[Rfam]
RNA sequence: CGAUGCGACGCUUUGGCGAUUUAGCUCCGUGACGUGAAGCAUACUCAUAAAGCUAGAUUACCAAAGCACCGCGUCC
Number, nucleotide and partner (000 for none) at each position: 001c000002g075003a074004u073005g072006c000007g070008a000009c000010g067011c066012u065013u064014u063015g062016g061017c000018g059019a058020u057021u056022u055023a054024g053025c052026u051027c000028c000029g048030u047031g046032a045033c000034g000035u000036g000037a000038a000039g000040c000041a000042u000043a000044c000045u032046c031047a030048u029049a000050a000051a026052g025053c024054u023055a022056g021057a020058u019059u018060a000061c016062c015063a014064a013065a012066g011067c010068a000069c000070c007071g000072c005073g004074u003075c002076c000
mir-9/mir-79 microRNA precursor family: a 76-nucleotide RNA from Manduca sexta. A reference for the family is Lagos-Quintana et al. (2001), "Identification of novel genes coding for small expressed RNAs", Science. The family's consensus secondary structure was predicted with RNAalifold. Gene Ontology terms of the family: RISC complex and miRNA-mediated post-transcriptional gene silencing. NCBI's taxonomy places the organism under Eukaryota, Hexapoda, Pterygota, Ditrysia, Manduca.